Shown here is a 109-nucleotide sequence from Sorghum bicolor, a member of the family "MIR5565 microRNA precursor family".
Pairs were carried over by alignment from the consensus structure, which was predicted with RNAalifold.
Its family is annotated with RISC complex and miRNA-mediated post-transcriptional gene silencing in the Gene Ontology.
The match comes from Rfam's covariance-model search (94 bits).
RNA sequence: GCACACAAAUCCACCCCAAUCCACGUGGUUUGGGAGGGAUUGAGGUGGAAUUUAGUUUAAGUUCCACUUCAAUCCCUCACAAACCAUGUGGAUAGGGGUGGAUAUGUGU
Number, nucleotide and partner (000 for none) at each position: 001g000002c000003a000004c108005a107006c106007a105008a000009a103010u102011c101012c100013a099014c098015c000016c096017c095018a000019a093020u092021c091022c090023a089024c088025g087026u086027g085028g084029u083030u082031u081032g080033g000034g000035a077036g076037g075038g074039a073040u072041u071042g070043a069044g000045g067046u066047g065048g000049a000050a000051u000052u000053u000054a000055g000056u000057u000058u000059a000060a000061g000062u000063u000064c000065c047066a046067c045068u000069u043070c042071a041072a040073u039074c038075c037076c036077u035078c000079a000080c032081a031082a030083a029084c028085c027086a026087u025088g024089u023090g022091g021092a020093u019094a000095g017096g016097g000098g014099u013100g012101g011102a010103u009104a000105u007106g006107u005108g004109u000